[Rfam]
RNA sequence: AUGUGUGUGAGCACAAAUCUGAAGGAAGCCAACGGCAAAAGUUCGAGCCUACGAACAGAAACUGCAUAUCAGGCGUGAUAGUAUGGGUGAUGCUGCAAAAGAAGCAAAAGCCCGACACUGUACAGGAUACUAUAACGUAAAUGCAGAGGCUACAUGAACGGAAAGCGGACACA
Numbered sequence: 001a002u003g004u005g006u007g008u009g010a011g012c013a014c015a016a017a018u019c020u021g022a023a024g025g026a027a028g029c030c031a032a033c034g035g036c037a038a039a040a041g042u043u044c045g046a047g048c049c050u051a052c053g054a055a056c057a058g059a060a061a062c063u064g065c066a067u068a069u070c071a072g073g074c075g076u077g078a079u080a081g082u083a084u085g086g087g088u089g090a091u092g093c094u095g096c097a098a099a100a101g102a103a104g105c106a107a108a109a110g111c112c113c114g115a116c117a118c119u120g121u122a123c124a125g126g127a128u129a130c131u132a133u134a135a136c137g138u139a140a141a142u143g144c145a146g147a148g149g150c151u152a153c154a155u156g157a158a159c160g161g162a163a164a165g166c167g168g169a170c171a172c173a
Stems, first nucleotide, its partner, number of pairs: 002015005035166002041159005046151005062146006073138003078133006085113004091106004

A member of the RNA family "Group II catalytic intron D1-D4-3" from Mucilaginibacter gotjawali, 173 nucleotides long. The pairing is the family consensus, mapped onto this sequence. About the family: Group II introns are found in rRNA, tRNA and mRNA of organelles in fungi, plants and protists, and also in mRNA in bacteria.